Shown here is an 85-nucleotide RNA from Synergistes jonesii, a member of the family "tRNA". Pairs were carried over by alignment from the consensus structure, which is taken from published work. A search with the family's covariance model found it, with a score of 54 bits.
RNA sequence: GUCAGGGUGGCGGAACUGGUAGACGCGCUAGAUUCAGGAUCUAGUGGGCAUAACGCUCAUAGGGGUUCAAUUCCCCUCCUUGACA
Numbered sequence: 001g002u003c004a005g006g007g008u009g010g011c012g013g014a015a016c017u018g019g020u021a022g023a024c025g026c027g028c029u030a031g032a033u034u035c036a037g038g039a040u041c042u043a044g045u046g047g048g049c050a051u052a053a054c055g056c057u058c059a060u061a062g063g064g065g066u067u068c069a070a071u072u073c074c075c076c077u078c079c080u081u082g083a084c085a
Base pairs, nucleotide, nucleotide: 001084002083003082004081005080006079007078010026011025012024028044029043030042031041032040061077062076063075064074065073